[Rfam]
Nucleotides: 101
Base pairs, nucleotide, nucleotide: 001097002096003095004094005093006092007091008090011088014085015084016080017079019078020077022076028064029063030062032060033059
Number, partner (000 for none) and nucleotide at each position: 001097g002096g003095c004094u005093g006092g007091u008090c009000g010000c011088a012000g013000u014085g015084c016080a017079g018000u019078g020077g021000u022076g023000u024000u025000g026000a027000c028064a029063g030062c031000u032060a033059a034000u035000u036000g037000a038000u039000c040000a041000u042000a043000g044000c045000c046000a047000g048000u049000u050000a051000c052000a053000g054000a055000u056000u057000u058000c059033u060032u061000u062030g063029u064028u065000c066000c067000u068000u069000c070000u071000g072000c073000a074000a075000u076022c077020c078019c079017c080016u081000g082000c083000u084015g085014c086000a087000c088011u089000u090008g091007a092006c093005u094004g095003g096002c097001c098000u099000a100000a101000a